[Rfam]
RNA: Glycine riboswitch aptamer
Organism: Anaerobranca californiensis
RNA sequence: AUGAACUUUUAGGGAGAGACCUUUUAAAGGCGCCGAAGAAGCAAGUUGCUUAACAGUUUUGCUAAUGGCAACGAAACUUUCAGGCAAAAGUACCUAAAAGGGACA
Numbered sequence: 001a002u003g004a005a006c007u008u009u010u011a012g013g014g015a016g017a018g019a020c021c022u023u024u025u026a027a028a029g030g031c032g033c034c035g036a037a038g039a040a041g042c043a044a045g046u047u048g049c050u051u052a053a054c055a056g057u058u059u060u061g062c063u064a065a066u067g068g069c070a071a072c073g074a075a076a077c078u079u080u081c082a083g084g085c086a087a088a089a090g091u092a093c094c095u096a097a098a099a100g101g102g103a104c105a
Stems, first nucleotide, its partner, number of pairs: 006100008020030003032085003035081002039079003045072006